[Rfam]
RNA sequence: AGGUAGAUGCACCCUGAUUAAACUAUUACCUCAGUUCAUAAAAGGCUGAGGUUUUUUAUU
Numbered sequence: 001a002g003g004u005a006g007a008u009g010c011a012c013c014c015u016g017a018u019u020a021a022a023c024u025a026u027u028a029c030c031u032c033a034g035u036u037c038a039u040a041a042a043a044g045g046c047u048g049a050g051g052u053u054u055u056u057u058a059u060u
Stems, first nucleotide, its partner, number of pairs: 002013003028052009